[Rfam]
RNA sequence: AAGUGCUCACGGGGUCGGUGAAAUUCCGAGCCGGCGGUGACAGUCCGCGACCCGUUCCUACUCGUCGAAGUGAUGAGGCAGACGGUUGAGCCGGUGAAAUUCCGGUGCCGACAGUGAGAGUCUGGAUGGGAGUAAGCACUU
Numbered sequence: 001a002a003g004u005g006c007u008c009a010c011g012g013g014g015u016c017g018g019u020g021a022a023a024u025u026c027c028g029a030g031c032c033g034g035c036g037g038u039g040a041c042a043g044u045c046c047g048c049g050a051c052c053c054g055u056u057c058c059u060a061c062u063c064g065u066c067g068a069a070g071u072g073a074u075g076a077g078g079c080a081g082a083c084g085g086u087u088g089a090g091c092c093g094g095u096g097a098a099a100u101u102c103c104g105g106u107g108c109c110g111a112c113a114g115u116g117a118g119a120g121u122c123u124g125g126a127u128g129g130g131a132g133u134a135a136g137c138a139c140u141u
Stems, first nucleotide, its partner, number of pairs: 003139005009133002016028003030121002032110002034048004043108002052085005090106005112124003
This 141-nucleotide RNA sequence from Pseudoclavibacter sp. CFCC 13611 belongs to the Rfam family "FMN riboswitch aptamer (RFN element)". It scores 95 bits against the family's covariance model.